[Rfam]
RNA sequence: AGGUGUCUUCAGGGCAGGGUGAAAUUCCCGACCGGCGGUGACGGCUUCAAAGAAAGCAGAAGUCCGCGAACCCUACGGGGUUGAUGUGGUGCAAAUCCACAACCGACAGUAAAGUCUGGAAGGGAGGAGACAAGU
Numbered sequence: 001a002g003g004u005g006u007c008u009u010c011a012g013g014g015c016a017g018g019g020u021g022a023a024a025u026u027c028c029c030g031a032c033c034g035g036c037g038g039u040g041a042c043g044g045c046u047u048c049a050a051a052g053a054a055a056g057c058a059g060a061a062g063u064c065c066g067c068g069a070a071c072c073c074u075a076c077g078g079g080g081u082u083g084a085u086g087u088g089g090u091g092c093a094a095a096u097c098c099a100c101a102a103c104c105g106a107c108a109g110u111a112a113a114g115u116c117u118g119g120a121a122g123g124g125a126g127g128a129g130a131c132a133a134g135u
Base pairs, nucleotide, nucleotide: 004132005131006130007129008128009127010126017029018028019027031115032114033105034104035067036066037065038064062103063102070081071080072079085101086100087099088098089097107118108117109116
RNA: FMN riboswitch aptamer (RFN element)